This 78-nucleotide RNA sequence from Trichocoleus sp. FACHB-832 belongs to the Rfam family "CyVA-1 RNA". The organism belongs to Trichocoleus, within Bacteria. The match comes from Rfam's covariance-model search (70 bits). From the family's description: Cyanobacteria, Acidobacteria (1 example), Verrucomicrobia (1 example). The family's RNA type in Rfam is small RNA.

RNA sequence: GCACUGGAUGGACGUUAUACCGCAGUGGUCCAGAAUCAAACAUCGAAGGAGAGCGACCGUCAGAUGUAAGAACAGUGC
Dot-bracket structure: ((((((..((((................))))....(..(((((..................)))))..)..))))))